[Rfam]
RNA: MAT2A 3'UTR stem loop B
Organism: Chrysochloris asiatica
RNA sequence: ACAGGCACUUGGCCACCCUAGUGAUGUCAUACAGGGAAGUCACAGGUAGUACCUGAGGGUCUGU
Numbered sequence: 001a002c003a004g005g006c007a008c009u010u011g012g013c014c015a016c017c018c019u020a021g022u023g024a025u026g027u028c029a030u031a032c033a034g035g036g037a038a039g040u041c042a043c044a045g046g047u048a049g050u051a052c053c054u055g056a057g058g059g060u061c062u063g064u
Stems, first nucleotide, its partner, number of pairs: 001064006008057002012053001017046003021043005026032002